[Rfam]
RNA sequence: UUUCCCUUUAAAUCAGUCCAGAGAGACUGAAAAGGAGAUAUUUAAGAGCAAGGUAAUAUUUCGCCCUGCCAAUUUAACUUCUUAUCAGUUUAUCUGGUGAGGAGUUUUUUUAU
Numbered sequence: 001u002u003u004c005c006c007u008u009u010a011a012a013u014c015a016g017u018c019c020a021g022a023g024a025g026a027c028u029g030a031a032a033a034g035g036a037g038a039u040a041u042u043u044a045a046g047a048g049c050a051a052g053g054u055a056a057u058a059u060u061u062c063g064c065c066c067u068g069c070c071a072a073u074u075u076a077a078c079u080u081c082u083u084a085u086c087a088g089u090u091u092a093u094c095u096g097g098u099g100a101g102g103a104g105u106u107u108u109u110u111u112a113u
Stems, first nucleotide, its partner, number of pairs: 003037001005035005013030006044073001048069003052065003056061001076106012
A member of the RNA family "PyrR binding site" from Halanaerobium sp. DL-01, 113 nucleotides long. Rfam classes the family as a cis-regulatory element. Its family is annotated with pyrimidine nucleobase biosynthetic process and pyrimidine nucleobase transport in the Gene Ontology.